RNA sequence: GGCUGGUCCAAGUACAGUGUUGUUUACAACUUAUUGAUCACAAUCAGGUACAGAUUUCUUUGCUCCUUCUCCUCUCCCGCUGCUUCUUUUGACUAGCCUUAA
Number, nucleotide and partner (000 for none) at each position: 001g098002g097003c096004u095005g094006g093007u092008c091009c000010a090011a089012g000013u000014a000015c000016a081017g080018u079019g078020u000021u000022g076023u000024u000025u000026a000027c000028a064029a000030c062031u000032u000033a059034u000035u000036g000037a000038u000039c000040a000041c000042a000043a000044u000045c000046a000047g000048g000049u000050a000051c000052a000053g000054a000055u000056u000057u000058c000059u033060u000061u000062g030063c000064u028065c000066c000067u000068u000069c000070u000071c000072c000073u000074c000075u000076c022077c000078c019079g018080c017081u016082g000083c000084u000085u000086c000087u000088u000089u011090u010091g008092a007093c006094u005095a004096g003097c002098c001099u000100u000101a000102a000

About this RNA
The record is a 102-nucleotide RNA from Prolemur simus, which matches "Y RNA" in Rfam. For this family Rfam cites "Ro ribonucleoproteins contribute to the resistance of Deinococcus radiodurans to ultraviolet irradiation" (Chen et al., Genes Dev, 2000). Y RNAs are components of the Ro ribonucleoprotein particle (Ro RNP), in association with Ro60 and La proteins. The Y RNAs and Ro60 and La proteins are well conserved, but the function of the Ro RNP is not known. Rfam classes the family as a non-coding RNA gene. A search with the family's covariance model found it, with a score of 53 bits. Pairs were carried over by alignment from the consensus structure, which is taken from published work. The source organism's lineage runs through Eukaryota, Chordata, Amniota, Mammalia and Prolemur.